Rfam assigns this 98-nucleotide RNA from Streptococcus thermophilus to the family "23S methyl RNA motif". The base pairs follow the family's consensus structure, which is taken from published work. On this family, see Weinberg et al., Nucleic Acids Res 2007: "Identification of 22 candidate structured RNAs in bacteria using the CMfinder comparative genomics pipeline". Lineage of the source: Bacteria > Bacillati > Bacillota > Bacilli > Streptococcus thermophilus. Rfam's curators put it in the seed alignment. Gene Ontology term of the family: regulation of gene expression.
[Rfam]
RNA sequence: CAUUCACUAUUUUAAAUCUAACCUGUCAUGAUUUAAGCUAAUGAAUGUCCAUAACCAUGUCGUCUGCUGAGCUUGACUCCGGGCGAUAUGGCAUUUUU
Numbered sequence: 001c002a003u004u005c006a007c008u009a010u011u012u013u014a015a016a017u018c019u020a021a022c023c024u025g026u027c028a029u030g031a032u033u034u035a036a037g038c039u040a041a042u043g044a045a046u047g048u049c050c051a052u053a054a055c056c057a058u059g060u061c062g063u064c065u066g067c068u069g070a071g072c073u074u075g076a077c078u079c080c081g082g083g084c085g086a087u088a089u090g091g092c093a094u095u096u097u098u
Stems, first nucleotide, its partner, number of pairs: 002046005008040002011037008055091012069079003